[Rfam]
Nucleotides: 074
Base pairs, nucleotide, nucleotide: 001074002073004071005070006069007068010065011064012063013062015060016059017058018057019056024052025051026050027049028048029047030046
Number, partner (000 for none) and nucleotide at each position: 001074c002073c003000a004071c005070c006069a007068c008000g009000c010065u011064a012063a013062g014000u015060a016059g017058u018057a019056g020000u021000g022000c023000c024052g025051c026050a027049g028048g029047u030046a031000u032000u033000u034000c035000g036000u037000g038000a039000g040000g041000a042000a043000c044000u045000u046030u047029a048028c049027c050026u051025g052024c053000g054000c055000a056019u057018u058017a059016c060015u061000c062013c063012u064011u065010a066000a067000u068007g069006u070005g071004g072000a073002g074001g
Source information
This 74-nucleotide sequence from Patiria miniata belongs to the Rfam family "mir-252 microRNA precursor family". On this family, see Li et al., BMC Genomics 2009: "Direct sequencing and expression analysis of a large number of miRNAs in Aedes aegypti and a multi-species survey of novel mosquito miRNAs". Rfam's curators put it in the seed alignment. The source organism's lineage runs through Eukaryota, Opisthokonta, Asterozoa, Valvatida and Patiria.